A member of the RNA family "uup RNA", 48 nucleotides long.
Rfam classes the family as a cis-regulatory element.
RNA sequence: ACAGAAUCAGCUCUGUACAAUCCAUCCCGAUGAAACAUUGUGCAGAGC
Dot-bracket structure: ..........(((((.(((...................))).))))).
Numbered sequence: 001a002c003a004g005a006a007u008c009a010g011c012u013c014u015g016u017a018c019a020a021u022c023c024a025u026c027c028c029g030a031u032g033a034a035a036c037a038u039u040g041u042g043c044a045g046a047g048c
Stems, first nucleotide, its partner, number of pairs: 011047005017041003